The family of this 178-nucleotide sequence from Roseofilum reptotaenium is "Antisense RNA which regulates isiA expression". On this family, see Duhring et al., Proc Natl Acad Sci U S A 2006: "An internal antisense RNA regulates expression of the photosynthesis gene isiA". Lineage of the source: Bacteria > Bacillati > Desertifilaceae > Roseofilum > Roseofilum reptotaenium.
RNA sequence: GAUAUCCAUAGAUGGUCAACGGAUCGAGGGUAGGGUUGCUAAUAAUGCGGACUGUUUCCGUUGUACUGUCGUAUAGUCCACCCCAGUACAUGGCUUUGCCGACGAGCAAUAAGGCUCCUAUACCCAAGAAUAAGAGGUGAUGCCCUAAGAUGAUGCCCAAUUGCUUGGGGUUCUCCCA
Numbered sequence: 001g002a003u004a005u006c007c008a009u010a011g012a013u014g015g016u017c018a019a020c021g022g023a024u025c026g027a028g029g030g031u032a033g034g035g036u037u038g039c040u041a042a043u044a045a046u047g048c049g050g051a052c053u054g055u056u057u058c059c060g061u062u063g064u065a066c067u068g069u070c071g072u073a074u075a076g077u078c079c080a081c082c083c084c085a086g087u088a089c090a091u092g093g094c095u096u097u098g099c100c101g102a103c104g105a106g107c108a109a110u111a112a113g114g115c116u117c118c119u120a121u122a123c124c125c126a127a128g129a130a131u132a133a134g135a136g137g138u139g140a141u142g143c144c145c146u147a148a149g150a151u152g153a154u155g156c157c158c159a160a161u162u163g164c165u166u167g168g169g170g171u172u173c174u175c176c177c178a
Base pairs, nucleotide, nucleotide: 136175137174139172140171141170144169145168146167147166148165